[Rfam]
RNA sequence: CUUGCGUCAGUGCUUGGAAGUGGCCCCCGGGGCAGGCCUCCACUCCGGCCCUUCCUUGGGCCUGCACUCUUGCUCCGGGCCCU
Numbered sequence: 001c002u003u004g005c006g007u008c009a010g011u012g013c014u015u016g017g018a019a020g021u022g023g024c025c026c027c028c029g030g031g032g033c034a035g036g037c038c039u040c041c042a043c044u045c046c047g048g049c050c051c052u053u054c055c056u057u058g059g060g061c062c063u064g065c066a067c068u069c070u071u072g073c074u075c076c077g078g079g080c081c082c083u
Stems, first nucleotide, its partner, number of pairs: 004080002007078002010075001012073002016069002020065004025060003029056003035050004
Dot-bracket structure: ...((.((.(.((..((..((((.(((.(((...((((........))))...))).))).))))..))..)).).))))...
RNA: mir-1343 microRNA precursor family